[Rfam]
Nucleotides: 128
Stems, first nucleotide, its partner, number of pairs: 007026006049080001062079002065076001
Number, partner (000 for none) and nucleotide at each position: 001000c002000g003000c004000c005000g006000a007026g008025a009024c010023u011022g012021c013000a014000a015000a016000u017000a018000u019000g020000c021012g022011u023010g024009g025008u026007c027000u028000c029000a030000c031000c032000c033000a034000u035000u036000c037000a038000c039000a040000u041000c042000a043000u044000u045000c046000a047000g048000g049080c050000a051000u052000a053000u054000u055000g056000c057000u058000g059000a060000u061000u062079g063078g064000a065076g066000a067000g068000a069000c070000a071000g072000a073000u074000g075000g076065c077000a078063c079062u080049g081000a082000c083000a084000g085000c086000c087000g088000a089000a090000c091000a092000g093000a094000a095000g096000g097000c098000c099000g100000a101000g102000a103000u104000c105000g106000u107000c108000a109000a110000g111000g112000a113000a114000u115000a116000c117000g118000g119000c120000c121000g122000a123000g124000u125000c126000g127000a128000g

Rfam assigns this 128-nucleotide sequence from Billgrantia gudaonensis to the family "Ribosomal S15 leader". It scores 40 bits against the family's covariance model. The literature on the family includes a 1996 paper in Biochimie by Benard et al., "Pseudoknot and translational control in the expression of the S15 ribosomal protein". The organism belongs to Billgrantia, within Bacteria.